Source information
Shown here is an 85-nucleotide RNA from Triticum urartu, a member of the family "Small nucleolar RNA Z162". Pairs were carried over by alignment from the consensus structure, which was predicted with PFOLD. The source organism's lineage runs through Eukaryota, Streptophytina, Magnoliopsida, Poaceae and Triticum.

RNA sequence: UCUUACAUUUCGCGAGACCGAGCUAGUGUAUCUAUGAGGUUGAAAGGCCAAUGACUCAAUAUGUCCUUUUCAUUCUGAGUGUAUC
Numbered sequence: 001u002c003u004u005a006c007a008u009u010u011c012g013c014g015a016g017a018c019c020g021a022g023c024u025a026g027u028g029u030a031u032c033u034a035u036g037a038g039g040u041u042g043a044a045a046g047g048c049c050a051a052u053g054a055c056u057c058a059a060u061a062u063g064u065c066c067u068u069u070u071c072a073u074u075c076u077g078a079g080u081g082u083a084u085c
Base pairs, nucleotide, nucleotide: 004083005082006081007080008079012073014071015070016069039048040047041046

The literature on the family includes a 2003 paper in Nucleic Acids Res by Chen et al., "The high diversity of snoRNAs in plants: identification and comparative study of 120 snoRNA genes from Oryza sativa".